The family of this 229-nucleotide RNA from Arthrobacter sp. NamB2 is "c-di-AMP riboswitch aptamer (ydaO/yuaA leader)". Taxonomically the source falls in Arthrobacter (Bacteria, Bacillati, Actinomycetota, Actinomycetes). Rfam's curators write: This family represents a conserved RNA structure found upstream of the ydaO and yuaA genes in Bacillus subtilis and related genes in other bacteria.
RNA sequence: CAGGUCCGCACGCCUAACCCUGUCAGCGGACCGCAUGAACAACCUGUGACAGGGGUGGAGGAUCCACAUUCCGGCGGUGCGAGCCGCCUUGGGGUGAAGCCCUCUACGCAUUGCUAAUCAGCACGGCCCCACCUGCGGUUCCACCGCGUCCGGGGCUGCGCCGAGGGGGCCGAGUCAACUCUUGCUCGAAUCCGACAGCUAACUUCGCCGGCGUCCUGAGAGAGGUAUG
Numbered sequence: 001c002a003g004g005u006c007c008g009c010a011c012g013c014c015u016a017a018c019c020c021u022g023u024c025a026g027c028g029g030a031c032c033g034c035a036u037g038a039a040c041a042a043c044c045u046g047u048g049a050c051a052g053g054g055g056u057g058g059a060g061g062a063u064c065c066a067c068a069u070u071c072c073g074g075c076g077g078u079g080c081g082a083g084c085c086g087c088c089u090u091g092g093g094g095u096g097a098a099g100c101c102c103u104c105u106a107c108g109c110a111u112u113g114c115u116a117a118u119c120a121g122c123a124c125g126g127c128c129c130c131a132c133c134u135g136c137g138g139u140u141c142c143a144c145c146g147c148g149u150c151c152g153g154g155g156c157u158g159c160g161c162c163g164a165g166g167g168g169g170c171c172g173a174g175u176c177a178a179c180u181c182u183u184g185c186u187c188g189a190a191u192c193c194g195a196c197a198g199c200u201a202a203c204u205u206c207g208c209c210g211g212c213g214u215c216c217u218g219a220g221a222g223a224g225g226u227a228u229g
Stems, first nucleotide, its partner, number of pairs: 011213004018054008055208006065091002092193003100169006172187004